[Rfam]
Shown here is a 181-nucleotide RNA sequence from Alkaliphilus sp. B6464, a member of the family "6S / SsrS RNA". Lineage of the source: Bacteria > Bacillati > Clostridia > Natronincolaceae > Alkaliphilus. The family's RNA type in Rfam is non-coding RNA gene. From the family's description: E. coli 6S RNA was the first non coding RNA to be sequenced, but its function was unknown until recently. It consists of 184 nucleotides that fold into an extended hairpin structure with a large single-stranded internal bulge. The 6S RNA specifically associates with RNA polymerase holoenzyme containing the sigma70 specificity factor. This interaction represses expression from a sigma70-dependent promoter during stationary phase. 6S RNA homologs have recently been identified in most bacterial genomes. Many Gram-positive species have two copies of 6S RNA. In Bacillus subtilis, both copies appear to interact with RNA polymerase holoenzyme containing the housekeeping sigma factor and be expressed during different stages of growth. In many proteobacteria, 6S RNA may be processed from a transcript encoding homologs of the E. coli YgfA protein which is a putative 5-formyltetrahydrofolate cycloligase activity. The base pairs follow the family's consensus structure, which is taken from published work. The literature on the family includes a 2000 paper in Cell by Wassarman and Storz, "6S RNA regulates E. coli RNA polymerase activity".
RNA sequence: AACACCCUGCUGUGUGCGUAUAAUCGACUAAGUUUUGAGCCAACACAAUGACAUUGGGAAUUUGGAGUUUAUUUAUUAAGUAAAUGCCCUACAAUCUGUAAGGACUUACGCAAUAAGUAACAGAAUACCCACCUGCGAGAGCAGGUUUCAAAACAUUCGACCACGGCAUGGCGGGGAAAAC
Numbered sequence: 001a002a003c004a005c006c007c008u009g010c011u012g013u014g015u016g017c018g019u020a021u022a023a024u025c026g027a028c029u030a031a032g033u034u035u036u037g038a039g040c041c042a043a044c045a046c047a048a049u050g051a052c053a054u055u056g057g058g059a060a061u062u063u064g065g066a067g068u069u070u071a072u073u074u075a076u077u078a079a080g081u082a083a084a085u086g087c088c089c090u091a092c093a094a095u096c097u098g099u100a101a102g103g104a105c106u107u108a109c110g111c112a113a114u115a116a117g118u119a120a121c122a123g124a125a126u127a128c129c130c131a132c133c134u135g136c137g138a139g140a141g142c143a144g145g146u147u148u149c150a151a152a153a154c155a156u157u158c159g160a161c162c163a164c165g166g167c168a169u170g171g172c173g174g175g176g177a178a179a180a181c
Stems, first nucleotide, its partner, number of pairs: 005176011017165003032154007039146003056130003060126004065121001070119007082107002087103002090100002